Notes:
Small nucleolar RNA Z103: a 109-nucleotide RNA sequence from Solanum lycopersicum. The organism belongs to Solanum subgen. Lycopersicon, within Eukaryota. A search with the family's covariance model found it, with a score of 64 bits. The literature on the family includes a 2003 paper in Nucleic Acids Res by Chen et al., "The high diversity of snoRNAs in plants: identification and comparative study of 120 snoRNA genes from Oryza sativa". Its family is annotated with RNA processing and nucleolus in the Gene Ontology.
RNA sequence: CUGGAGGUGAUGAAUAUUUCCCCAGAAGAUCGAAGCUGAAAUUACUGAGGCUUUUUAUGUAUUUUCUCUGUUCAGAGGGAAAAAAUCCAAGCCAGAUAUUCUGAUCCGU
Numbered sequence: 001c002u003g004g005a006g007g008u009g010a011u012g013a014a015u016a017u018u019u020c021c022c023c024a025g026a027a028g029a030u031c032g033a034a035g036c037u038g039a040a041a042u043u044a045c046u047g048a049g050g051c052u053u054u055u056u057a058u059g060u061a062u063u064u065u066c067u068c069u070g071u072u073c074a075g076a077g078g079g080a081a082a083a084a085a086u087c088c089a090a091g092c093c094a095g096a097u098a099u100u101c102u103g104a105u106c107c108g109u
Stems, first nucleotide, its partner, number of pairs: 002108004

About this RNA
It is annotated as a C/D-box small nucleolar RNA.